The record is a 97-nucleotide RNA sequence, which matches "malK-III RNA" in Rfam.
[Rfam]
RNA sequence: GAGCGAGGCGUCGCGUACGGGGCUCGUCCGAGACCACACCUGAGGCCGGAUGCAGGAGCCCGCGCUGGUCGAGCCCGGGGAGGAGCGGAGAUCGAUG
Numbered sequence: 001g002a003g004c005g006a007g008g009c010g011u012c013g014c015g016u017a018c019g020g021g022g023c024u025c026g027u028c029c030g031a032g033a034c035c036a037c038a039c040c041u042g043a044g045g046c047c048g049g050a051u052g053c054a055g056g057a058g059c060c061c062g063c064g065c066u067g068g069u070c071g072a073g074c075c076c077g078g079g080g081a082g083g084a085g086c087g088g089a090g091a092u093c094g095a096u097g
Stems, first nucleotide, its partner, number of pairs: 014064003020061006026051003034045002037042001
The family's RNA type in Rfam is cis-regulatory element.